[Rfam]
Background
The family of this 167-nucleotide RNA sequence is "RAGATH-9 RNA".
RNA sequence: CCAAUCAACCCAAAAGAACUGUAAAUAUACCAGAACCCUAAUGGAAGUUCGUAAGAACUAGAGUACAAUGGCUAUACAACGGCAAUCUAUAUAUCUAUAGAUAAAAGGAGAGAAGGAUAGGGGUUAUCUGUGAAAUAAGAGAUAUGAAUACACAGAGCAGUUCUUUU
Number, nucleotide and partner (000 for none) at each position: 001c000002c000003a000004a000005u000006c000007a000008a000009c000010c000011c000012a167013a166014a165015a164016g163017a162018a161019c160020u159021g158022u000023a000024a000025a000026u000027a000028u000029a124030c123031c122032a000033g000034a000035a000036c000037c000038c000039u000040a000041a000042u067043g066044g000045a000046a000047g058048u057049u056050c055051g000052u000053a000054a000055g050056a049057a048058c047059u000060a000061g000062a000063g000064u000065a000066c043067a042068a000069u000070g000071g083072c082073u081074a000075u000076a000077c000078a000079a000080c000081g073082g072083c071084a000085a102086u101087c100088u099089a098090u097091a096092u000093a000094u000095c000096u091097a090098u089099a088100g087101a086102u085103a000104a000105a000106a000107g000108g000109a000110g000111a000112g000113a000114a000115g000116g000117a000118u000119a000120g000121g000122g031123g030124u029125u000126a000127u156128c155129u154130g153131u152132g151133a000134a000135a000136u000137a000138a000139g000140a000141g000142a000143u000144a000145u000146g000147a000148a000149u000150a000151c132152a131153c130154a129155g128156a127157g000158c021159a020160g019161u018162u017163c016164u015165u014166u013167u012

It is annotated as a small RNA.